[Rfam]
Shown here is a 77-nucleotide sequence from Alligator mississippiensis, a member of the family "Mammalian CPEB3 ribozyme". It scores 42 bits against the family's covariance model.
RNA sequence: UGAGAGAUACAGGAGGCCACAGCAGAAGCACUCACGGUCCAGCACCGUCACACUCCAAUGAAUCUGUGAAUUCUGCU
Number, nucleotide and partner (000 for none) at each position: 001u000002g000003a000004g000005a000006g000007a000008u000009a000010c000011a000012g000013g045014a000015g000016g043017c042018c000019a000020c000021a077022g076023c075024a074025g073026a072027a071028g040029c000030a038031c000032u000033c000034a000035c000036g000037g000038u030039c000040c028041a000042g017043c016044a000045c013046c000047g000048u000049c066050a065051c000052a063053c000054u061055c060056c000057a000058a000059u000060g055061a054062a000063u052064c000065u050066g049067u000068g000069a000070a000071u027072u026073c025074u024075g023076c022077u021

Rfam links the family to the GO term RNA nuclease activity.